[Rfam]
RNA sequence: CGACCUCAGAUCAGACGAGACGACCCGCUGAAUUUAAGCAUAUUACUAAGCGGAGGAAAAGAAACUAACUAGGAUUCCCUCAGUAGCGGCGAGCGAAGAGGGAAGAGCCCAGCGCCGAAUCCCCGGCCCCGCGGGCCGCGGGAACUGUGGCGUACAGAAGACCGCCUCUCUCGACGCGGGCCGGGGGCUUGAGUCCUUCUGAUGGAGGCUCAGCCCGUGGACGGUGUGAGGCCGGUAACGGCCCCUGCCCCGUCGGGGUCCGGUCUUCUCGGAGUCGGGUUGUUUGUGAAUGCAGCCCAAAGCGGGUGGUAAACUCCAUCUAAGGCUAAAUACCGGCACGAGACCGAUAGCGGACAAGUACCGUGAGGGAAAGUUGAAAAGAACUUUGAAGAGAGAGUUCAAGAGGGCGUGAAACCGUUAAGAGGUAAA
Numbered sequence: 001c002g003a004c005c006u007c008a009g010a011u012c013a014g015a016c017g018a019g020a021c022g023a024c025c026c027g028c029u030g031a032a033u034u035u036a037a038g039c040a041u042a043u044u045a046c047u048a049a050g051c052g053g054a055g056g057a058a059a060a061g062a063a064a065c066u067a068a069c070u071a072g073g074a075u076u077c078c079c080u081c082a083g084u085a086g087c088g089g090c091g092a093g094c095g096a097a098g099a100g101g102g103a104a105g106a107g108c109c110c111a112g113c114g115c116c117g118a119a120u121c122c123c124c125g126g127c128c129c130c131g132c133g134g135g136c137c138g139c140g141g142g143a144a145c146u147g148u149g150g151c152g153u154a155c156a157g158a159a160g161a162c163c164g165c166c167u168c169u170c171u172c173g174a175c176g177c178g179g180g181c182c183g184g185g186g187g188c189u190u191g192a193g194u195c196c197u198u199c200u201g202a203u204g205g206a207g208g209c210u211c212a213g214c215c216c217g218u219g220g221a222c223g224g225u226g227u228g229a230g231g232c233c234g235g236u237a238a239c240g241g242c243c244c245c246u247g248c249c250c251c252g253u254c255g256g257g258g259u260c261c262g263g264u265c266u267u268c269u270c271g272g273a274g275u276c277g278g279g280u281u282g283u284u285u286g287u288g289a290a291u292g293c294a295g296c297c298c299a300a301a302g303c304g305g306g307u308g309g310u311a312a313a314c315u316c317c318a319u320c321u322a323a324g325g326c327u328a329a330a331u332a333c334c335g336g337c338a339c340g341a342g343a344c345c346g347a348u349a350g351c352g353g354a355c356a357a358g359u360a361c362c363g364u365g366a367g368g369g370a371a372a373g374u375u376g377a378a379a380a381g382a383a384c385u386u387u388g389a390a391g392a393g394a395g396a397g398u399u400c401a402a403g404a405g406g407g408c409g410u411g412a413a414a415c416c417g418u419u420a421a422g423a424g425g426u427a428a429a
Stems, first nucleotide, its partner, number of pairs: 024055001025053005035042002065072002076103005086094002106327004113152005119146001120143004124138005157268002160265004175255002179251001183246007193209001195208004216220001223233002277298007304321005361368002384395004
Dot-bracket structure: .......................((((((.....((....))......))))).).........((....))...(((((.....((.....))....)))))..((((...(((((.((((((((((.....))))).))))..).)))))....((.((((...........((..(...(((((((...(.((((......)))))......(...)..((.......))......)))))))....)..))......)))).))........(((((((........))))))).....(((((........)))))..)))).................................((....))...............((((....))))..................................